Plastid-rps18 3UTR RNA: a 57-nucleotide RNA from Philydrum lanuginosum. The sequence is in the family's curated seed alignment. Rfam classes the family as a cis-regulatory element. Rfam's curators write: Plastid rps18 is a non-coding RNA (ncRNA) present in plastids. It was identified as a short stem-loop motif in the 3 prime untranslate region (3UTR) of rps18 gene. The base pairs follow the family's consensus structure, which was predicted with LocARNA.
Nucleotides: 057
Stems, first nucleotide, its partner, number of pairs: 018037008
Number, partner (000 for none) and nucleotide at each position: 001000c002000g003000c004000a005000g006000g007000u008000a009000u010000u011000u012000u013000a014000c015000g016000a017000u018037u019036a020035a021034g022033a023032a024031g025030c026000a027000a028000u029000u030025g031024u032023u033022u034021c035020u036019u037018g038000u039000a040000c041000a042000g043000g044000u045000u046000g047000u048000g049000u050000a051000u052000a053000a054000a055000u056000u057000u